Record summary
A member of the RNA family "epsC RNA" from Virgibacillus phasianinus, 112 nucleotides long. It scores 102 bits against the family's covariance model. The organism belongs to Virgibacillus, within Bacteria. It is annotated as a cis-regulatory element. The family has 30 seed sequences and 450 matches in Rfam 15.1. The base pairs follow the family's consensus structure, which is taken from published work.

RNA sequence: UGGUGAUGUCUUCUAACCAUUAUCAAUGAAGGCACUCGAUCAUGCUGUGGGUUGGUUAACCUUAGACGCAUUCGUUGUCGAAAGUGUGAUGUGAGGGCGGGUUGGAUGCCCC
Numbered sequence: 001u002g003g004u005g006a007u008g009u010c011u012u013c014u015a016a017c018c019a020u021u022a023u024c025a026a027u028g029a030a031g032g033c034a035c036u037c038g039a040u041c042a043u044g045c046u047g048u049g050g051g052u053u054g055g056u057u058a059a060c061c062u063u064a065g066a067c068g069c070a071u072u073c074g075u076u077g078u079c080g081a082a083a084g085u086g087u088g089a090u091g092u093g094a095g096g097g098c099g100g101g102u103u104g105g106a107u108g109c110c111c112c
Stems, first nucleotide, its partner, number of pairs: 001019004007034007035095004039090008049062005065079004099111004